[Rfam]
RNA sequence: UUCUUAUCAUGAGAGGUGGAGGGAUUGGCCCUACGAAACCUCGGCAGCGGGCUCACUUUAGAGCACUGUGCCAAAUCCAACAAGCUUUGAUUAGCUUGAGAGAUAAGAA
Numbered sequence: 001u002u003c004u005u006a007u008c009a010u011g012a013g014a015g016g017u018g019g020a021g022g023g024a025u026u027g028g029c030c031c032u033a034c035g036a037a038a039c040c041u042c043g044g045c046a047g048c049g050g051g052c053u054c055a056c057u058u059u060a061g062a063g064c065a066c067u068g069u070g071c072c073a074a075a076u077c078c079a080a081c082a083a084g085c086u087u088u089g090a091u092u093a094g095c096u097u098g099a100g101a102g103a104u105a106a107g108a109a
Stems, first nucleotide, its partner, number of pairs: 001109008013042005021031003025080004043072004048068002051064004076101001081098006
RNA: SAM riboswitch aptamer (S box leader)